[Rfam]
RNA sequence: ACAAUUAGUUCACUCCGAAGCUUCGUGACCUAAGCCAUUUAAUGCCAAUGAUAUGGUUUGCAAAUGACAUGGUGACGUAGCCGAGACCGAGAGUCUCCGGGUUGUGCUUGAAAAGGCUCAGCCUCCCGUGCUUGGAAAGGGGUAAGAUGUCACUAUCC
Numbered sequence: 001a002c003a004a005u006u007a008g009u010u011c012a013c014u015c016c017g018a019a020g021c022u023u024c025g026u027g028a029c030c031u032a033a034g035c036c037a038u039u040u041a042a043u044g045c046c047a048a049u050g051a052u053a054u055g056g057u058u059u060g061c062a063a064a065u066g067a068c069a070u071g072g073u074g075a076c077g078u079a080g081c082c083g084a085g086a087c088c089g090a091g092a093g094u095c096u097c098c099g100g101g102u103u104g105u106g107c108u109u110g111a112a113a114a115g116g117c118u119c120a121g122c123c124u125c126c127c128g129u130g131c132u133u134g135g136a137a138a139g140g141g142g143u144a145a146g147a148u149g150u151c152a153c154u155a156u157c158c
Base pairs, nucleotide, nucleotide: 006149012143013142014141015140016139020081021080022079024077025076026075028073029072030071034068036066037065038064039063040062083097084096085095086094087093099124100123101122102121103120104119106117107116108115109114125135126134